[Rfam]
RNA sequence: AAACACCAUGUCCGGCAAAGUUUAGCGAACAGCCGGUACCAAGCCUUGGAUCUGAAGCCGCGAGGUCAAGAUUAAGCGUAGGCAUGGGAGUGCGAGAGCCGCAAUGCGAAAGCGUGAAGCGAUUGAGCCUCGUAAUAAAUUGGAGCGGAAGCCGAUGUACUUCAGUCUACAGCAGGCAGCAAUGCGUACUCGUAAACGCGAGAGUGCGCAGGUUCCGUCGGGGUCCGAGAGCG
Numbered sequence: 001a002a003a004c005a006c007c008a009u010g011u012c013c014g015g016c017a018a019a020g021u022u023u024a025g026c027g028a029a030c031a032g033c034c035g036g037u038a039c040c041a042a043g044c045c046u047u048g049g050a051u052c053u054g055a056a057g058c059c060g061c062g063a064g065g066u067c068a069a070g071a072u073u074a075a076g077c078g079u080a081g082g083c084a085u086g087g088g089a090g091u092g093c094g095a096g097a098g099c100c101g102c103a104a105u106g107c108g109a110a111a112g113c114g115u116g117a118a119g120c121g122a123u124u125g126a127g128c129c130u131c132g133u134a135a136u137a138a139a140u141u142g143g144a145g146c147g148g149a150a151g152c153c154g155a156u157g158u159a160c161u162u163c164a165g166u167c168u169a170c171a172g173c174a175g176g177c178a179g180c181a182a183u184g185c186g187u188a189c190u191c192g193u194a195a196a197c198g199c200g201a202g203a204g205u206g207c208g209c210a211g212g213u214u215c216c217g218u219c220g221g222g223g224u225c226c227g228a229g230a231g232c233g
Stems, first nucleotide, its partner, number of pairs: 012036005020030003023201001025199002039087003043083004047078002049073005054067002058065002124227001125225001127224006145218006151177003156171004183210009
The family of this 233-nucleotide RNA is "Group II catalytic intron D1-D4-6". Pairs were carried over by alignment from the consensus structure. Rfam's curators write: Group II introns are found in rRNA, tRNA and mRNA of organelles in fungi, plants and protists, and also in mRNA in bacteria. The sequence is in the family's curated seed alignment.